The record is a 182-nucleotide RNA sequence from Indolivaga capnocytophagoides, which matches "Bacteroidales-1 6S-Bacteroidales RNA suggested" in Rfam.
NCBI's taxonomy places the organism under Bacteria, Bacteroidota, Bacteroidia, Dysgonomonadaceae, Indolivaga.
It scores 142 bits against the family's covariance model.
From the family's description: Bacteroidales-1 was first reported in a comparative genomics-based approach of genome and metagenome sequences from Weinberg et al. 2010 In a high-resolution transcriptome map study of Bacteroides thetaiotaomicron, Ryan et al. 2020 report this sRNA as 6S RNA homologue of Bacteroides, in the study they obtain evidence of small product RNAs (pRNAs) related to 6S function.
RNA sequence: GGUCGUACUGGUCGAUUGGGAAACUCAUCAAUUAAUAGAUAAAUUCCGAGACAAGCUUACCGUUUCUAAUGGCGGGUCACACCCUCCGGGGUUGCUUUAUGCGCAGUGAAUUACAAAGGGAGCGGGGCACUCAAAUCCUGUUUUACGGAGUUUCGUCAUUUUCCACUGGUACGGCUCUUCUU
Numbered sequence: 001g002g003u004c005g006u007a008c009u010g011g012u013c014g015a016u017u018g019g020g021a022a023a024c025u026c027a028u029c030a031a032u033u034a035a036u037a038g039a040u041a042a043a044u045u046c047c048g049a050g051a052c053a054a055g056c057u058u059a060c061c062g063u064u065u066c067u068a069a070u071g072g073c074g075g076g077u078c079a080c081a082c083c084c085u086c087c088g089g090g091g092u093u094g095c096u097u098u099a100u101g102c103g104c105a106g107u108g109a110a111u112u113a114c115a116a117a118g119g120g121a122g123c124g125g126g127g128c129a130c131u132c133a134a135a136u137c138c139u140g141u142u143u144u145a146c147g148g149a150g151u152u153u154c155g156u157c158a159u160u161u162u163c164c165a166c167u168g169g170u171a172c173g174g175c176u177c178u179u180c181u182u
Base pairs, nucleotide, nucleotide: 055128056127057126060125061124062123063122064121065120066119067118070115071114077109078108079107080106082091083090084089094102095101